A member of the RNA family "Nuclear RNase P" from Absidia repens, 337 nucleotides long. A search with the family's covariance model found it, with a score of 124 bits. The family's RNA type in Rfam is ribozyme. From the family's description: Ribonuclease P (RNase P) is a ubiquitous endoribonuclease, found in archaea, bacteria and eukarya as well as chloroplasts and mitochondria. Its best characterised activity is the generation of mature 5'-ends of tRNAs by cleaving the 5'-leader elements of precursor-tRNAs. Cellular RNase Ps are ribonucleoproteins. RNA from bacterial RNase Ps retains its catalytic activity in the absence of the protein subunit, i.e. it is a ribozyme. Isolated eukaryotic and archaeal RNase P RNA has not been shown to retain its catalytic function, but is still essential for the catalytic activity of the holoenzyme. Although the archaeal and eukaryotic holoenzyme s have a much greater protein content than the bacterial ones, the RNA cores from all the three lineages are homologous -- helices corresponding to P1, P2, P3, P4, and P10/11 are common to all cellular RNase P RNAs. Yet, there is considerable sequence variation, particularly among the eukaryotic RNAs. Its family is annotated with ribonuclease P complex, tRNA processing and ribonuclease P activity in the Gene Ontology.
RNA sequence: GGAGGUGGUAAGCUUAUGUGUACGGGCAAACACACGAAAAAAAAAAGAAUCAAGUCAUGUAUUUGGCUUGGUUUUUUUUUAUUUUUAUUUUAUACCCGUGGGAAGGUCUGAGGAAAGCCAUUAUGCUCUUACCGAGUAACUCGUUUAUUUACGGGUGUAAGUAACCAGAAACAAAUGGUGGGGGAUUAGGCUUGUUCUUUGACGGAUACCCUUCAAGGUAUUCUGAGGAUUGUCCUUUUCUCCUUUUAUUGAAAUGCUUGCGGGUUUUAGUACUAUGCAGUGCAAUACAUAAGGCUGACACUGUCAGUAACUCGAUUCAGACUACUCUGCCCCCUCC
Numbered sequence: 001g002g003a004g005g006u007g008g009u010a011a012g013c014u015u016a017u018g019u020g021u022a023c024g025g026g027c028a029a030a031c032a033c034a035c036g037a038a039a040a041a042a043a044a045a046a047g048a049a050u051c052a053a054g055u056c057a058u059g060u061a062u063u064u065g066g067c068u069u070g071g072u073u074u075u076u077u078u079u080u081a082u083u084u085u086u087a088u089u090u091u092a093u094a095c096c097c098g099u100g101g102g103a104a105g106g107u108c109u110g111a112g113g114a115a116a117g118c119c120a121u122u123a124u125g126c127u128c129u130u131a132c133c134g135a136g137u138a139a140c141u142c143g144u145u146u147a148u149u150u151a152c153g154g155g156u157g158u159a160a161g162u163a164a165c166c167a168g169a170a171a172c173a174a175a176u177g178g179u180g181g182g183g184g185a186u187u188a189g190g191c192u193u194g195u196u197c198u199u200u201g202a203c204g205g206a207u208a209c210c211c212u213u214c215a216a217g218g219u220a221u222u223c224u225g226a227g228g229a230u231u232g233u234c235c236u237u238u239u240c241u242c243c244u245u246u247u248a249u250u251g252a253a254a255u256g257c258u259u260g261c262g263g264g265u266u267u268u269a270g271u272a273c274u275a276u277g278c279a280g281u282g283c284a285a286u287a288c289a290u291a292a293g294g295c296u297g298a299c300a301c302u303g304u305c306a307g308u309a310a311c312u313c314g315a316u317u318c319a320g321a322c323u324a325c326u327c328u329g330c331c332c333c334c335u336c337c
Stems, first nucleotide, its partner, number of pairs: 001337004008330003013293007022099005037086005108320005116266004124138005139156006157261007173247003294308005